[Rfam]
RNA sequence: GCCUCACUCACAAUGUAACCUUGUAUAAUUUUGGCGAUAUGGGCCAUAAGUCUCUACUCAGAUACCGUAAACAUCUGAACUACAAUGGAACUGGUUUUAUAU
Number, nucleotide and partner (000 for none) at each position: 001g000002c000003c000004u000005c000006a000007c000008u000009c000010a000011c000012a000013a000014u000015g000016u000017a000018a000019c087020c000021u085022u084023g083024u082025a081026u000027a000028a000029u049030u048031u000032u046033g045034g044035c043036g000037a000038u000039a000040u000041g000042g000043g035044c034045c033046a032047u000048a030049a029050g000051u000052c000053u000054c000055u000056a000057c000058u078059c077060a076061g075062a074063u073064a000065c000066c000067g000068u000069a000070a000071a000072c000073a063074u062075c061076u060077g059078a058079a000080c000081u025082a024083c023084a022085a021086u000087g019088g000089a000090a000091c000092u000093g000094g000095u000096u000097u000098u000099a000100u000101a000102u000

Purine riboswitch aptamer: a 102-nucleotide RNA from Psychromonas sp. Urea-02u-13. Lineage of the source: Bacteria > Pseudomonadati > Gammaproteobacteria > Alteromonadales > Psychromonas.